[Rfam]
Shown here is a 73-nucleotide RNA sequence from Clostridium senegalense, a member of the family "Fluoride riboswitch aptamer (crcB RNA motif)". The source organism's lineage runs through Bacteria, Bacillota, Clostridia, Clostridiaceae and Clostridium. The base pairs follow the family's consensus structure, which is taken from published work. A search with the family's covariance model found it, with a score of 46 bits.
RNA sequence: UUAUUAACUGGGAAUGAAGUUCUCCCAUGAAUAUUCUAAACCGUCUUUACAGACUAAUGACUUCUAUGAUUUU
Numbered sequence: 001u002u003a004u005u006a007a008c009u010g011g012g013a014a015u016g017a018a019g020u021u022c023u024c025c026c027a028u029g030a031a032u033a034u035u036c037u038a039a040a041c042c043g044u045c046u047u048u049a050c051a052g053a054c055u056a057a058u059g060a061c062u063u064c065u066a067u068g069a070u071u072u073u
Stems, first nucleotide, its partner, number of pairs: 010026004016064006043054004